[Rfam]
RNA sequence: CGUCAAGAGUCCGUUCGGGCUCAACGCCGUUUUGGCGAGCAGAUUUCUUUUGCCUAACAAAAGGUAAAAGGAAAUG
Numbered sequence: 001c002g003u004c005a006a007g008a009g010u011c012c013g014u015u016c017g018g019g020c021u022c023a024a025c026g027c028c029g030u031u032u033u034g035g036c037g038a039g040c041a042g043a044u045u046u047c048u049u050u051u052g053c054c055u056a057a058c059a060a061a062a063g064g065u066a067a068a069a070g071g072a073a074a075u076g
Stems, first nucleotide, its partner, number of pairs: 010072003014068001026065003030062005037055001039053005

The family of this 76-nucleotide RNA from Tianweitania populi is "S-element". Rfam's curators write: This family represents a group of S-elements from p42d and related plasmids. The S-element has multiple functions and is believed to act as a negative regulator of repC transcription, be required for efficient replication and act as a translational enhancer of repC. The family's consensus secondary structure is taken from published work. Gene Ontology terms of the family: translation regulator activity and mRNA transcription. The literature on the family includes a 2004 paper in Mol Microbiol by Venkova-Canova et al., "Two discrete elements are required for the replication of a repABC plasmid: an antisense RNA and a stem-loop structure".